[Rfam]
RNA sequence: UGCUCUGUAACCUUCGGGGGCUGAUCCCGCUUAGCGGGGACGUCUUGGACAAGCGGGGGUUCUGUUGCGUUGACUUGGUGUUCUGCUUGGUUGCGUGUCGGUGUUGAGGUCGCCACUGUAGAGAGGCGUUCUCGCGCCGUUAAAGUGGGGGGAACGGGUCAGGCCGGUGACGGAGCAGCCCACCUUGCGCACGUUCCCGUUGCAGAAGCACACCGAGGAGCAUCUC
Numbered sequence: 001u002g003c004u005c006u007g008u009a010a011c012c013u014u015c016g017g018g019g020g021c022u023g024a025u026c027c028c029g030c031u032u033a034g035c036g037g038g039g040a041c042g043u044c045u046u047g048g049a050c051a052a053g054c055g056g057g058g059g060u061u062c063u064g065u066u067g068c069g070u071u072g073a074c075u076u077g078g079u080g081u082u083c084u085g086c087u088u089g090g091u092u093g094c095g096u097g098u099c100g101g102u103g104u105u106g107a108g109g110u111c112g113c114c115a116c117u118g119u120a121g122a123g124a125g126g127c128g129u130u131c132u133c134g135c136g137c138c139g140u141u142a143a144a145g146u147g148g149g150g151g152g153a154a155c156g157g158g159u160c161a162g163g164c165c166g167g168u169g170a171c172g173g174a175g176c177a178g179c180c181c182a183c184c185u186u187g188c189g190c191a192c193g194u195u196c197c198c199g200u201u202g203c204a205g206a207a208g209c210a211c212a213c214c215g216a217g218g219a220g221c222a223u224c225u226c
Stems, first nucleotide, its partner, number of pairs: 011018002056226001058224003062220002074217008082206005089198002093194006099139006106133004111128004116123002140144001145188006156181004164173003
This 226-nucleotide RNA from Trypanosoma brucei belongs to the Rfam family "Protozoan signal recognition particle RNA". A reference for the family is Wild et al. (2002), "Towards the structure of the mammalian signal recognition particle", Curr Opin Struct Biol. It scores 114 bits against the family's covariance model. It is annotated as a non-coding RNA gene. Rfam 15.1 lists 111 matches to the family in 100 species.